[Rfam]
RNA: DUF3800-VIII RNA
RNA sequence: GAGACCCUGUUGAUGCCGAAGCCUCAGGCUCUGCGUGAGGCAUUGACGUAGGAAUCAAUGGGGUCAC
Numbered sequence: 001g002a003g004a005c006c007c008u009g010u011u012g013a014u015g016c017c018g019a020a021g022c023c024u025c026a027g028g029c030u031c032u033g034c035g036u037g038a039g040g041c042a043u044u045g046a047c048g049u050a051g052g053a054a055u056c057a058a059u060g061g062g063g064u065c066a067c
Base pairs, nucleotide, nucleotide: 001067003065004064005063006062007061008060009059010058011057012056013055016052017051021041022040023039024038025037026036028034029033